Rfam assigns this 107-nucleotide RNA from Prunus avium to the family "MIR6274 microRNA precursor family". Lineage of the source: Eukaryota > Viridiplantae > Gunneridae > Rosaceae > Prunus. The family has 2 seed sequences and 342 matches in Rfam 15.1. Pairs were carried over by alignment from the consensus structure, which was predicted with RNAalifold. Gene Ontology terms of the family: miRNA-mediated post-transcriptional gene silencing and RISC complex.
RNA sequence: GGAUAGCAGUGUUCUGCUAUCCCCGACCAAUAACACAAUGACACGUGGAAAAGUUAUCCUACGUGUCAUUGCGUUAUUAAUCGAGCAUAGCAAAAAGUGUUAUUUCC
Numbered sequence: 001g002g003a004u005a006g007c008a009g010u011g012u013u014c015u016g017c018u019a020u021c022c023c024c025g026a027c028c029a030a031u032a033a034c035a036c037a038a039u040g041a042c043a044c045g046u047g048g049a050a051a052a053g054u055u056a057u058c059c060u061a062c063g064u065g066u067c068a069u070u071g072c073g074u075u076a077u078u079a080a081u082c083g084a085g086c087a088u089a090g091c092a093a094a095a096a097g098u099g100u101u102a103u104u105u106c107c
Stems, first nucleotide, its partner, number of pairs: 002106002005103001012095002015092006022085001024083003029078006036071013050057001